RNA: U5 spliceosomal RNA
Organism: Callorhinchus milii
RNA sequence: AUGCUCUGGUUUCUCUUCAGAUCGUAUAAAUCUUUCGCCUUUUACUAAAGAUUUCCGUGGAGAGGAGCAUUUACGAGUUUUUAACCCAAUUUUUUUAGGCUCUGCACCAGCAGAGCU
Numbered sequence: 001a002u003g004c005u006c007u008g009g010u011u012u013c014u015c016u017u018c019a020g021a022u023c024g025u026a027u028a029a030a031u032c033u034u035u036c037g038c039c040u041u042u043u044a045c046u047a048a049a050g051a052u053u054u055c056c057g058u059g060g061a062g063a064g065g066a067g068c069a070u071u072u073a074c075g076a077g078u079u080u081u082u083a084a085c086c087c088a089a090u091u092u093u094u095u096u097a098g099g100c101u102c103u104g105c106a107c108c109a110g111c112a113g114a115g116c117u
Stems, first nucleotide, its partner, number of pairs: 003078004009068011028054008097117001099116006